This 99-nucleotide sequence from Shewanella fodinae belongs to the Rfam family "Manganese Mn2+ riboswitch aptamer (yybP-ykoY)". The organism belongs to Shewanella, within Bacteria. This RNA was originally discovered in E. coli during a large scale screen and was named SraF. The family was later found to exist upstream of related families of protein genes in many bacteria, including the the yybP and ykoK genes in B. subtilis. The specific functions of these proteins are unknown, but this structured RNA element may be involved in their genetic regulation as a riboswitch. It scores 50 bits against the family's covariance model. A reference for the family is Argaman et al. (2001), "Novel small RNA-encoding genes in the intergenic regions of Escherichia coli", Curr Biol.
[Rfam]
RNA sequence: CUCUAGUUCUUGGGGGAGUAGCCGACCCGCAACUUGUGGGUGCAUUCAUCAACAAACUUGGCCACAUGCCAUGGUGAAUGCAGCAAGUCUGACUUGCCU
Numbered sequence: 001c002u003c004u005a006g007u008u009c010u011u012g013g014g015g016g017a018g019u020a021g022c023c024g025a026c027c028c029g030c031a032a033c034u035u036g037u038g039g040g041u042g043c044a045u046u047c048a049u050c051a052a053c054a055a056a057c058u059u060g061g062c063c064a065c066a067u068g069c070c071a072u073g074g075u076g077a078a079u080g081c082a083g084c085a086a087g088u089c090u091g092a093c094u095u096g097c098c099u
Base pairs, nucleotide, nucleotide: 026040027039028038042081043080044079045078046077047076048075049074050073051072059071060070061069062068083097084096085095086094087093088092